[Rfam]
RNA sequence: CUCCAUGUAUCUUUGGGCCAACCAGCUGUGGCGGUCUCCCUUCCAAGCCACAGAAGAGCACAUUCCUGCUUCCUGGAAAAGCCCUCGCCACGUAGUUGGUACCAGAGACGCCGAUUAGCACAAGGAGCAUCC
Numbered sequence: 001c002u003c004c005a006u007g008u009a010u011c012u013u014u015g016g017g018c019c020a021a022c023c024a025g026c027u028g029u030g031g032c033g034g035u036c037u038c039c040c041u042u043c044c045a046a047g048c049c050a051c052a053g054a055a056g057a058g059c060a061c062a063u064u065c066c067u068g069c070u071u072c073c074u075g076g077a078a079a080a081g082c083c084c085u086c087g088c089c090a091c092g093u094a095g096u097u098g099g100u101a102c103c104a105g106a107g108a109c110g111c112c113g114a115u116u117a118g119c120a121c122a123a124g125g126a127g128c129a130u131c132c
Stems, first nucleotide, its partner, number of pairs: 002054002006050002015040003019034001022031002067129004074122002076119001079116001082107001084105001087100004

Shown here is a 132-nucleotide RNA sequence from Rattus norvegicus, a member of the family "Small nucleolar RNA SNORA24". About the family: ACA24 is a member of the H/ACA class of snoRNA that guide the sites of modification of uridines to pseudouridines. Gene Ontology terms of the family: nucleolus and RNA processing. The family's RNA type in Rfam is H/ACA-box small nucleolar RNA. The source organism's lineage runs through Eukaryota, Dipnotetrapodomorpha, Boreoeutheria, Muroidea and Rattus.